[Rfam]
RNA sequence: AGCUACGCUGAGUGGCCAGAUUAUUAUGAUCUCUGAACGCAUAACAAUCUGGCCACUCAGUGUAUAA
Numbered sequence: 001a002g003c004u005a006c007g008c009u010g011a012g013u014g015g016c017c018a019g020a021u022u023a024u025u026a027u028g029a030u031c032u033c034u035g036a037a038c039g040c041a042u043a044a045c046a047a048u049c050u051g052g053c054c055a056c057u058c059a060g061u062g063u064a065u066a067a
Stems, first nucleotide, its partner, number of pairs: 004064014019049004024044005